[Rfam]
RNA sequence: GGAUGUGAGGGUGAUCUGGCUGUGACAUCUGUCACUCCACUGAUCGCCAGGGUUGAUUCAGCUGAUCUAGCUGGCUAGGUGGGUGUCCCUUUCCUCCCUCACCGGUCCAUGUGCGUCCCUCCCGAAGCUGCGCGCUCGGUCGAAGAGGACGACCUUCCCCGAUAGAGACGUACCGUUCAUCGGUCAAGGGUAUACGGUAGCUACACUCCCCUGCUAGAACCUCCAAACAAGUUACUUAAGUAGGAAUCUCUGAUCUGACGUGAAUGCCUUAAGGACUAAAGACACCACAGAUUGGUC
Numbered sequence: 001g002g003a004u005g006u007g008a009g010g011g012u013g014a015u016c017u018g019g020c021u022g023u024g025a026c027a028u029c030u031g032u033c034a035c036u037c038c039a040c041u042g043a044u045c046g047c048c049a050g051g052g053u054u055g056a057u058u059c060a061g062c063u064g065a066u067c068u069a070g071c072u073g074g075c076u077a078g079g080u081g082g083g084u085g086u087c088c089c090u091u092u093c094c095u096c097c098c099u100c101a102c103c104g105g106u107c108c109a110u111g112u113g114c115g116u117c118c119c120u121c122c123c124g125a126a127g128c129u130g131c132g133c134g135c136u137c138g139g140u141c142g143a144a145g146a147g148g149a150c151g152a153c154c155u156u157c158c159c160c161g162a163u164a165g166a167g168a169c170g171u172a173c174c175g176u177u178c179a180u181c182g183g184u185c186a187a188g189g190g191u192a193u194a195c196g197g198u199a200g201c202u203a204c205a206c207u208c209c210c211c212u213g214c215u216a217g218a219a220c221c222u223c224c225a226a227a228c229a230a231g232u233u234a235c236u237u238a239a240g241u242a243g244g245a246a247u248c249u250c251u252g253a254u255c256u257g258a259c260g261u262g263a264a265u266g267c268c269u270u271a272a273g274g275a276c277u278a279a280a281g282a283c284a285c286c287a288c289a290g291a292u293u294g295g296u297c
Stems, first nucleotide, its partner, number of pairs: 001108003005102007013093002018090002024087010035074002037070001039068001042067004046062002117170001119167003122139004127135002140162003147158003200267002202264001206260001209257001214252001222245003227241002
This 297-nucleotide sequence from Pelecanoides urinatrix belongs to the Rfam family "7SK RNA". The family's RNA type in Rfam is non-coding RNA gene. For this family Rfam cites "Transcription: surprising role for an elusive small nuclear RNA" (Blencowe, Curr Biol, 2002). 7SK was discovered as an abundant small nuclear RNA in the mid-70s but a possible function has only recently been suggested. Two independent studies have found that 7SK RNA binds the CDK9/cyclin T complex (known as elongation factor P-TEFb). The match comes from Rfam's covariance-model search (232 bits).